[Rfam]
RNA sequence: GCAUGGGUUUGGAUUUAUGGCAGGCCCGUACCUCUGGUCUGUCAUAGUGUCCCAUGCCAGAGCAAACUGUGGCCCCAAACCAUUGCCUGGCUUCUCCCUGUAGGCUGCUGGCACUGAAGUGGGUUACACAUUA
Numbered sequence: 001g002c003a004u005g006g007g008u009u010u011g012g013a014u015u016u017a018u019g020g021c022a023g024g025c026c027c028g029u030a031c032c033u034c035u036g037g038u039c040u041g042u043c044a045u046a047g048u049g050u051c052c053c054a055u056g057c058c059a060g061a062g063c064a065a066a067c068u069g070u071g072g073c074c075c076c077a078a079a080c081c082a083u084u085g086c087c088u089g090g091c092u093u094c095u096c097c098c099u100g101u102a103g104g105c106u107g108c109u110g111g112c113a114c115u116g117a118a119g120u121g122g123g124u125u126a127c128a129c130a131u132u133a
Stems, first nucleotide, its partner, number of pairs: 001057004005052004015047006022040005070126006081116002086111002088107006
Dot-bracket structure: ((((((((......((((((.(((((.........))))).)))))).)))).))))............((((((.....((...((((((((........))))))..))...))....)))))).......
RNA: Small nucleolar RNA SNORA42/SNORA80 family